[Rfam]
Nucleotides: 163
Base pairs, nucleotide, nucleotide: 001127004123005122007120009117010116011115012114013113015111016110019107021106022105023104024103025102026101027100028099030097031096032095035092036091038089041086046081047080048079049078051076052075053074054073055072057070058069059068060067132155133154134153135152136151137150138149139148140147141146
Number, partner (000 for none) and nucleotide at each position: 001127g002000c003000c004123c005122g006000u007120c008000g009117u010116u011115a012114u013113u014000a015111c016110c017000g018000a019107u020000u021106a022105a023104a024103u025102a026101a027100c028099u029000u030097a031096g032095u033000a034000a035092a036091g037000c038089u039000u040000c041086c042000g043000g044000a045000c046081u047080a048079g049078c050000c051076u052075a053074a054073a055072g056000g057070g058069g059068u060067a061000a062000g063000c064000a065000a066000c067060u068059a069058c070057c071000u072055u073054u074053u075052u076051a077000a078049g079048c080047u081046a082000a083000a084000a085000a086041g087000u088000u089038a090000u091036u092035u093000a094000a095032a096031c097030u098000c099028g100027g101026u102025u103024a104023u105022u106021u107019a108000a109000a110016g111015g112000a113013a114012g115011u116010a117009a118000a119000a120007g121000u122005c123004g124000u125000a126000a127001u128000a129000a130000a131000g132155u133154c134153u135152c136151c137150g138149u139148u140147a141146a142000u143000a144000a145000a146141u147140u148139a149138a150137c151136g152135g153134a154133g155132g156000g157000a158000u159000u160000a161000u162000u163000a

The record is a 163-nucleotide part of an RNA from Ophiostoma piceae, which matches "Eukaryotic small subunit ribosomal RNA" in Rfam. The source organism's lineage runs through Eukaryota, saccharomyceta, sordariomyceta, Ophiostoma and Ophiostoma piceae. Its family is annotated with ribosome and structural constituent of ribosome in the Gene Ontology. On this family, see Yusupov et al., Science 2001: "Crystal structure of the ribosome at 5.5 A resolution". The family is grouped with related families in Rfam's "SSU clan".